[Rfam]
RNA: MIR8622 microRNA precursor family
RNA sequence: CCGAAAUCUGCGCCGGAACUAUGACGCAUCCAACAUUUUGUCACAGCCAUGCUCUCCGCCACGGGCCGUGAACCCCUGAACGGUGGGUGUCAGCAGUAGCUAGUGGCAUCAGCUACUGCUGUAAACCCGUAGUUCAGGAGGUUGGGGUCCGUGGCGGUGAGCAUGGCUGUGACAAAAUGUUGGAUGCAUGUUGGUUCCGGCGCAGAUUUCGG
Number, nucleotide and partner (000 for none) at each position: 001c212002c211003g210004a209005a208006a207007u206008c205009u204010g203011c202012g201013c200014c199015g198016g197017a196018a195019c194020u193021a192022u000023g000024a189025c000026g187027c186028a185029u184030c183031c182032a181033a180034c000035a178036u177037u000038u175039u174040g173041u172042c171043a000044c169045a168046g167047c166048c165049a164050u163051g162052c161053u160054c159055u000056c157057c156058g155059c154060c153061a152062c151063g000064g149065g148066c147067c146068g000069u144070g143071a142072a000073c140074c000075c138076c137077u136078g135079a134080a133081c132082g000083g000084u000085g128086g127087g126088u000089g000090u000091c121092a120093g119094c118095a117096g116097u115098a114099g113100c112101u111102a000103g000104u000105g000106g000107c000108a000109u000110c000111a101112g100113c099114u098115a097116c096117u095118g094119c093120u092121g091122u000123a000124a000125a000126c087127c086128c085129g000130u000131a000132g081133u080134u079135c078136a077137g076138g075139a000140g073141g000142u071143u070144g069145g000146g067147g066148u065149c064150c000151g062152u061153g060154g059155c058156g057157g056158u000159g054160a053161g052162c051163a050164u049165g048166g047167c046168u045169g044170u000171g042172a041173c040174a039175a038176a000177a036178u035179g000180u033181u032182g031183g030184a029185u028186g027187c026188a000189u024190g000191u000192u021193g020194g019195u018196u017197c016198c015199g014200g013201c012202g011203c010204a009205g008206a007207u006208u005209u004210c003211g002212g001